This 90-nucleotide RNA sequence from Eudromia elegans belongs to the Rfam family "mir-7 microRNA precursor family".
Rfam links the family to the GO terms RISC complex and miRNA-mediated post-transcriptional gene silencing.
The literature on the family includes a 2001 paper in Science by Lagos-Quintana et al., "Identification of novel genes coding for small expressed RNAs".
Lineage of the source: Eukaryota > Vertebrata > Archelosauria > Theropoda > Eudromia.
This family represents the microRNA (miRNA) precursor mir-7.
Nucleotides: 090
Stems, first nucleotide, its partner, number of pairs: 002089003006085003010081003014077001016075002019072005025067007033060005
Number, partner (000 for none) and nucleotide at each position: 001000u002089g003088c004087c005000c006085g007084g008083c009000g010081c011080c012079c013000c014077g015000u016075g017074g018000a019072a020071g021070a022069c023068u024000a025067g026066u027065g028064a029063u030062u031061u032000u033060g034059u035058u036057g037056u038000u039000g040000c041000u042000u043000g044000g045000c046000u047000c048000g049000u050000c051000u052000c053000a054000c055000c056037a057036c058035a059034a060033c061031a062030a063029g064028u065027c066026a067025c068023a069022g070021u071020c072019u073000g074017c075016c076000c077014u078000a079012g080011g081010g082000c083008g084007c085006c086000c087004g088003g089002c090000c